[Rfam]
RNA sequence: GCAGCGCUGGAAGUCCGCUCCCAGCGAGGAUCGCAAC
Numbered sequence: 001g002c003a004g005c006g007c008u009g010g011a012a013g014u015c016c017g018c019u020c021c022c023a024g025c026g027a028g029g030a031u032c033g034c035a036a037c
Stems, first nucleotide, its partner, number of pairs: 005026006012019002
RNA: CRISPR RNA direct repeat element